Shown here is a 90-nucleotide sequence from Albula goreensis, a member of the family "Small nucleolar RNA SNORD60". Rfam links the family to the GO terms nucleolus and RNA processing. Its Rfam clan is "SNORD60 clan". On this family, see Galardi et al., Mol Cell Biol 2002: "Purified box C/D snoRNPs are able to reproduce site-specific 2'-O-methylation of target RNA in vitro". The base pairs follow the family's consensus structure, which was predicted with PFOLD. By type it is a C/D-box small nucleolar RNA.
[Rfam]
RNA sequence: AGCCACUGAUGAUACUUUUAAAAAACAUUUUCUGACACCUCGUAUGACUGCUGCCUAGCAGCGACUGAUUACUUGCACUAUCUGAGGCUC
Number, nucleotide and partner (000 for none) at each position: 001a089002g088003c087004c086005a000006c000007u000008g000009a000010u000011g000012a000013u000014a000015c000016u000017u000018u000019u000020a000021a000022a000023a000024a000025a000026c000027a000028u000029u000030u000031u000032c000033u000034g000035a000036c000037a000038c000039c000040u000041c000042g000043u000044a000045u000046g000047a000048c000049u000050g062051c061052u060053g059054c058055c000056u000057a000058g054059c053060a052061g051062c050063g000064a000065c000066u000067g000068a000069u000070u000071a000072c000073u000074u000075g000076c000077a000078c000079u000080a000081u000082c000083u000084g000085a000086g004087g003088c002089u001090c000